[Rfam]
RNA sequence: GGGUUACUCCUUGGCGCUUGCGCGCUGUUUUGAUGAAGAUUCGCACCUCUAUCAAAACGGGUAACCCCGCCUCUUGGUAAGGCAUUACUGUCAGAUCAAGUCUGAACUUCUACACGUGAUGCAAUGGACCUCGCCUAUCUGACCGGCCAGCGUCCCCAGGACACGCUA
Numbered sequence: 001g002g003g004u005u006a007c008u009c010c011u012u013g014g015c016g017c018u019u020g021c022g023c024g025c026u027g028u029u030u031u032g033a034u035g036a037a038g039a040u041u042c043g044c045a046c047c048u049c050u051a052u053c054a055a056a057a058c059g060g061g062u063a064a065c066c067c068c069g070c071c072u073c074u075u076g077g078u079a080a081g082g083c084a085u086u087a088c089u090g091u092c093a094g095a096u097c098a099a100g101u102c103u104g105a106a107c108u109u110c111u112a113c114a115c116g117u118g119a120u121g122c123a124a125u126g127g128a129c130c131u132c133g134c135c136u137a138u139c140u141g142a143c144c145g146g147c148c149a150g151c152g153u154c155c156c157c158a159g160g161a162c163a164c165g166c167u168a
Stems, first nucleotide, its partner, number of pairs: 001067007009060002014025004027058009037048002075158003081151001085146002090107002092104005109142002114138001
Rfam assigns this 168-nucleotide RNA from Burkholderia glumae to the family "Proteobacterial sRNA psRNA2". The pairing is the family consensus, mapped onto this sequence.